RNA: Glycine riboswitch aptamer
Organism: Mycobacterium fragae
Nucleotides: 123
Base pairs, nucleotide, nucleotide: 002118004116005115006114007113008112009111016041017040018039019038043092044091045090046088047087050086051085052084056079057078058077059076
Number, partner (000 for none) and nucleotide at each position: 001000a002118u003000g004116c005115u006114u007113c008112u009111g010000g011000a012000a013000a014000g015000c016041g017040g018039u019038g020000a021000c022000g023000a024000c025000c026000g027000g028000u029000a030000g031000c032000g033000g034000c035000c036000u037000u038019c039018a040017c041016c042000c043092g044091c045090c046088g047087a048000u049000g050086g051085g052084g053000a054000a055000a056079g057078g058077c059076g060000a061000c062000c063000c064000g065000c066000a067000c068000u069000g070000c071000a072000g073000g074000g075000g076059c077058g078057c079056c080000g081000a082000a083000u084052c085051u086050c087047u088046c089000a090045g091044g092043c093000g094000c095000c096000c097000g098000g099000c100000g101000c102000g103000g104000g105000u106000g107000a108000a109000g110000a111009c112008a113007g114006a115005g116004g117000g118002a119000g120000a121000g122000g123000g